[Rfam]
RNA sequence: AAGGUGCAUUAAGAAAGGGGUUAUCCCUGCCAACCUGCAUACCGUGCGAAGGUGGUAAUAUAUGCGGCCAAAAGGCAAAAGUUAGGUCUCA
Dot-bracket structure: .....((((.....(.((((...)))))(((..((((((...[.)))..))).))).....)))).(((....))).........].....

This 91-nucleotide RNA sequence belongs to the Rfam family "SAM-I/IV (S-adenosyl methionine) riboswitch aptamer". Rfam links the family to the GO terms regulation of gene expression and S-adenosylmethionine metabolic process.